[Rfam]
RNA sequence: GGCACAGAUUUCAAGUAAAGUAGGUUAGUAGGAUCAGCUGACUCUACUAAACUAUCUUACUUCGAAUUUGUGCCC
Numbered sequence: 001g002g003c004a005c006a007g008a009u010u011u012c013a014a015g016u017a018a019a020g021u022a023g024g025u026u027a028g029u030a031g032g033a034u035c036a037g038c039u040g041a042c043u044c045u046a047c048u049a050a051a052c053u054a055u056c057u058u059a060c061u062u063c064g065a066a067u068u069u070g071u072g073c074c075c
Stems, first nucleotide, its partner, number of pairs: 001074009011064001013062006020055004025050006032043001034041002
Dot-bracket structure: (((((((((.(.((((((.((((.((((((.(.((....)).).)))))).)))).)))))).).))))))))).

The record is a 75-nucleotide sequence from Haemonchus contortus, which matches "mir-5928 microRNA precursor family" in Rfam.
NCBI's taxonomy places the organism under Eukaryota, Metazoa, Chromadorea, Rhabditina, Haemonchus.
It is one of the family's seed sequences.